[Rfam]
RNA: mir-278 microRNA precursor family
Organism: Megaselia scalaris
RNA sequence: GGUGCACCCGGAUGAUGGUCUUCCAACGACCGUUUUAUUAUACAGGUCGGUGGGACUUUCGUCCGUUUGCAAC
Numbered sequence: 001g002g003u004g005c006a007c008c009c010g011g012a013u014g015a016u017g018g019u020c021u022u023c024c025a026a027c028g029a030c031c032g033u034u035u036u037a038u039u040a041u042a043c044a045g046g047u048c049g050g051u052g053g054g055a056c057u058u059u060c061g062u063c064c065g066u067u068u069g070c071a072a073c
Stems, first nucleotide, its partner, number of pairs: 003071004009065007017057005023052001027049005